Annotation
This 460-nucleotide RNA sequence from Papyrusvirus papyrus belongs to the Rfam family "Giant, ornate, lake- and Lactobacillales-derived (GOLLD) RNA". A reference for the family is Weinberg et al. (2009), "Exceptional structured noncoding RNAs revealed by bacterial metagenome analysis", Nature. Pairs were carried over by alignment from the consensus structure, which is taken from published work. The organism belongs to Papyrusvirus papyrus, within Viruses.
[Rfam]
RNA sequence: CGAUGGCGUGGUGCAUUCUGUGGCUCAAAAGGCGACGGAACACCUGGGGCAGCACGUCGUCAGAUCGUAUGGCCUGGUCUCCCUAAGGGACCACCAAAGCGCUCAGGCAAGAGCACUACCAUUGGGAGGUAGCAACGGUGUAAAAGCCGUUUCCGGUUCGACUCCGGCAAAGCAAAAGUCUGUCCCCGCUAGCAACGAAAGUACCCUAAUCCCUAGGGCUUACGCCAACUAGGGCACCAGAAGGCUCGCAAGGCCGACUGGUGUUGCUAGACAAAGUAGUGCAGGUAGGGGGAGGCCACCCCUGACCGAAUCGAAACGUCAGCGAGUAGUUCGCUAGUGUAGGUAGUGGUUCCGCCAAUCAAACGGGACCGGGUACGGUGGCUGCAAGUGGGAGCUUGCGGACAAGAAACUAACACAUAAGGUUUCGAAAGGCCACUGGGAUAGGGUCAAGUCUACGCCC
Numbered sequence: 001c002g003a004u005g006g007c008g009u010g011g012u013g014c015a016u017u018c019u020g021u022g023g024c025u026c027a028a029a030a031g032g033c034g035a036c037g038g039a040a041c042a043c044c045u046g047g048g049g050c051a052g053c054a055c056g057u058c059g060u061c062a063g064a065u066c067g068u069a070u071g072g073c074c075u076g077g078u079c080u081c082c083c084u085a086a087g088g089g090a091c092c093a094c095c096a097a098a099g100c101g102c103u104c105a106g107g108c109a110a111g112a113g114c115a116c117u118a119c120c121a122u123u124g125g126g127a128g129g130u131a132g133c134a135a136c137g138g139u140g141u142a143a144a145a146g147c148c149g150u151u152u153c154c155g156g157u158u159c160g161a162c163u164c165c166g167g168c169a170a171a172g173c174a175a176a177a178g179u180c181u182g183u184c185c186c187c188g189c190u191a192g193c194a195a196c197g198a199a200a201g202u203a204c205c206c207u208a209a210u211c212c213c214u215a216g217g218g219c220u221u222a223c224g225c226c227a228a229c230u231a232g233g234g235c236a237c238c239a240g241a242a243g244g245c246u247c248g249c250a251a252g253g254c255c256g257a258c259u260g261g262u263g264u265u266g267c268u269a270g271a272c273a274a275a276g277u278a279g280u281g282c283a284g285g286u287a288g289g290g291g292g293a294g295g296c297c298a299c300c301c302c303u304g305a306c307c308g309a310a311u312c313g314a315a316a317c318g319u320c321a322g323c324g325a326g327u328a329g330u331u332c333g334c335u336a337g338u339g340u341a342g343g344u345a346g347u348g349g350u351u352c353c354g355c356c357a358a359u360c361a362a363a364c365g366g367g368a369c370c371g372g373g374u375a376c377g378g379u380g381g382c383u384g385c386a387a388g389u390g391g392g393a394g395c396u397u398g399c400g401g402a403c404a405a406g407a408a409a410c411u412a413a414c415a416c417a418u419a420a421g422g423u424u425u426c427g428a429a430a431g432g433c434c435a436c437u438g439g440g441a442u443a444g445g446g447u448c449a450a451g452u453c454u455a456c457g458c459c460c
Base pairs, nucleotide, nucleotide: 002061003060004059005058006057007056008055009054010044011043012042013041017039018038019037020036021035023033024032025031046186047185048184049183050182051181052180172249173248187339188338189337190336191335192334193333194331195330196329202375203374204373205372206371211234212233213232214231215230216229217226218225219224235263236262237261238260239259243255244254245253246252266323267322268321270319281306289302290301291300292299348370349369350368351367352366353365377437378436379435380434381433382432383400384399385398386397387396388395389394401453402452403451406426407425408424409423410422411421445459446458447457